Shown here is a 95-nucleotide RNA sequence from Solanum lycopersicum, a member of the family "mir-172 microRNA precursor family".
Pairs were carried over by alignment from the consensus structure, which was predicted with PFOLD.
It scores 72 bits against the family's covariance model.
Rfam's curators write: mir-172 has been experimentally verified in Arabidopsis thaliana. This family is thought to target mRNAs coding for APETALA2-like transcription factors.

RNA sequence: UUGUUUGUAAAUGCAGCACUAUUAAGAUUCUCAAAUAUUCUGACAUUUAAAAAGCAAUUAAAUGUGAAUCUUGAUGAUGCUGCAUUAGCAAUAAA
Numbered sequence: 001u002u003g004u005u006u007g008u009a010a011a012u013g014c015a016g017c018a019c020u021a022u023u024a025a026g027a028u029u030c031u032c033a034a035a036u037a038u039u040c041u042g043a044c045a046u047u048u049a050a051a052a053a054g055c056a057a058u059u060a061a062a063u064g065u066g067a068a069u070c071u072u073g074a075u076g077a078u079g080c081u082g083c084a085u086u087a088g089c090a091a092u093a094a095a
Stems, first nucleotide, its partner, number of pairs: 010086009020076011032064002